[Rfam]
RNA sequence: AACAACUUUAUUCGGAUUCCUUAUAUAAAUGUGGUGAUAUGGUCCACAAGUUUCUACCUAGCUACCGUAAAUGGCUAGACUAUAAGGAAAGACUAGUAGAUG
Numbered sequence: 001a002a003c004a005a006c007u008u009u010a011u012u013c014g015g016a017u018u019c020c021u022u023a024u025a026u027a028a029a030u031g032u033g034g035u036g037a038u039a040u041g042g043u044c045c046a047c048a049a050g051u052u053u054c055u056a057c058c059u060a061g062c063u064a065c066c067g068u069a070a071a072u073g074g075c076u077a078g079a080c081u082a083u084a085a086g087g088a089a090a091g092a093c094u095a096g097u098a099g100a101u102g
Base pairs, nucleotide, nucleotide: 018088019087020086021085022084023083024082025081030048031047032046033045034044058078059077060076061075062074063073064072

This 102-nucleotide RNA sequence from Pontibacillus halophilus belongs to the Rfam family "Purine riboswitch aptamer". The match comes from Rfam's covariance-model search (87 bits). NCBI's taxonomy places the organism under Bacteria, Bacilli, Caryophanales, Bacillaceae, Pontibacillus halophilus.